[Rfam]
RNA sequence: UGCUUAUCAAGAGCGGCUGAGGGGACAGGCCCUGUGAAGCCCGACAACCUGCGCGCAAGCGUAAGGUGCCAAAUCCUGCGGGAAACCGAAAGAUAAGAG
Numbered sequence: 001u002g003c004u005u006a007u008c009a010a011g012a013g014c015g016g017c018u019g020a021g022g023g024g025a026c027a028g029g030c031c032c033u034g035u036g037a038a039g040c041c042c043g044a045c046a047a048c049c050u051g052c053g054c055g056c057a058a059g060c061g062u063a064a065g066g067u068g069c070c071a072a073a074u075c076c077u078g079c080g081g082g083a084a085a086c087c088g089a090a091a092g093a094u095a096a097g098a099g
Stems, first nucleotide, its partner, number of pairs: 001099001003097006013042001015041003021032003026078004043070001045068002048066002050063004074091001079088003
RNA: SAM riboswitch aptamer (S box leader)
Organism: Faecalibacterium sp. An121